[Rfam]
RNA sequence: ACUCCAUAAGCCGGAACGAAGAAUGUGUUUUUUUUGAAUGAAGGGCGCAUUUUGGCUUUGUGGUUGUGAUGUUGUGUUUGCUAAUUACCUGACACUUGUUGGGUGCAAUCAUUACCCCAAUGAUGACAUUGGAUUAAUGAUUUAUACAUUUUCUGAACAUUUACCCUGUCUGUCCAUAGUGAUUUCAGUAGCACCGCGAAUGCGGUGCUUUUUUUU
Numbered sequence: 001a002c003u004c005c006a007u008a009a010g011c012c013g014g015a016a017c018g019a020a021g022a023a024u025g026u027g028u029u030u031u032u033u034u035u036g037a038a039u040g041a042a043g044g045g046c047g048c049a050u051u052u053u054g055g056c057u058u059u060g061u062g063g064u065u066g067u068g069a070u071g072u073u074g075u076g077u078u079u080g081c082u083a084a085u086u087a088c089c090u091g092a093c094a095c096u097u098g099u100u101g102g103g104u105g106c107a108a109u110c111a112u113u114a115c116c117c118c119a120a121u122g123a124u125g126a127c128a129u130u131g132g133a134u135u136a137a138u139g140a141u142u143u144a145u146a147c148a149u150u151u152u153c154u155g156a157a158c159a160u161u162u163a164c165c166c167u168g169u170c171u172g173u174c175c176a177u178a179g180u181g182a183u184u185u186c187a188g189u190a191g192c193a194c195c196g197c198g199a200a201u202g203c204g205g206u207g208c209u210u211u212u213u214u215u216u
Base pairs, nucleotide, nucleotide: 009057010056011055012054015053016052022051023050024049025048026047027046028045029044030043031042032041033040086105087104088103089102090101091100092099107142108141109140110139111138112137113136114135157189158188190209191208192207193206194205195204196203197202

Rfam assigns this 216-nucleotide RNA sequence from Budvicia aquatica to the family "GcvB RNA".
Taxonomically the source falls in Budvicia (Bacteria, Pseudomonadati, Enterobacterales, Budviciaceae).
Its family is annotated with regulation of gene expression and mRNA binding in the Gene Ontology.
From the family's description: The gcvB gene encodes a small untranslated RNA involved in expression of the dipeptide and oligopeptide transport systems in Escherichia coli. Included several unknown homologues in alignment (Bateman A pers obs). It base-pairs with SorC. This interaction triggers the degradation of GcvB by RNase E, alleviating the GcvB-mediated mRNA repression of other amino acid-related transport and metabolic genes.
A search with the family's covariance model found it, with a score of 106 bits.